[Rfam]
RNA sequence: UGACGAUAAUAGCAAACCUAUCGAAAGAUUGGGACGCAAAGCCACGAGCCUAAGGGAGACUAUGGUAGUCGGGUUGCCGAA
Numbered sequence: 001u002g003a004c005g006a007u008a009a010u011a012g013c014a015a016a017c018c019u020a021u022c023g024a025a026a027g028a029u030u031g032g033g034a035c036g037c038a039a040a041g042c043c044a045c046g047a048g049c050c051u052a053a054g055g056g057a058g059a060c061u062a063u064g065g066u067a068g069u070c071g072g073g074u075u076g077c078c079g080a081a
Base pairs, nucleotide, nucleotide: 012037013036017032018031020029021028022027040075041074042073043072045071046070047069048066049065050064055060

A member of the RNA family "c-di-GMP-I riboswitch aptamer" from Paenibacillus ginsengarvi, 81 nucleotides long. NCBI's taxonomy places the organism under Bacteria, Bacillati, Bacillota, Bacilli, Paenibacillus. The literature on the family includes a 2007 paper in Nucleic Acids Res by Weinberg et al., "Identification of 22 candidate structured RNAs in bacteria using the CMfinder comparative genomics pipeline".